[Rfam]
The record is a 131-nucleotide RNA from Conger conger, which matches "Small nucleolar RNA SNORA13" in Rfam.

RNA sequence: UGCCUUCAAGUGUUGCCCGUUCAUUCCGCCUGUAAUGAAUGUGGUGUCAGCGAAGGCAUACAGUGACUCUUGUGGUGGCCGUAAGGAGGCAGUGACGGUGGCCUUUAUUCUGGCCCACGACAAGCACAAUA
Numbered sequence: 001u002g003c004c005u006u007c008a009a010g011u012g013u014u015g016c017c018c019g020u021u022c023a024u025u026c027c028g029c030c031u032g033u034a035a036u037g038a039a040u041g042u043g044g045u046g047u048c049a050g051c052g053a054a055g056g057c058a059u060a061c062a063g064u065g066a067c068u069c070u071u072g073u074g075g076u077g078g079c080c081g082u083a084a085g086g087a088g089g090c091a092g093u094g095a096c097g098g099u100g101g102c103c104u105u106u107a108u109u110c111u112g113g114c115c116c117a118c119g120a121c122a123a124g125c126a127c128a129a130u131a
Stems, first nucleotide, its partner, number of pairs: 002057006011049002014046004018041008069124004073119001075118004086111001088109002
ACA13 is a member of the H/ACA class of snoRNA that guide the sites of modification of uridines to pseudouridines. Clan: SNORA13 clan. The base pairs follow the family's consensus structure, which was predicted with CMfinder. The family's RNA type in Rfam is H/ACA-box small nucleolar RNA.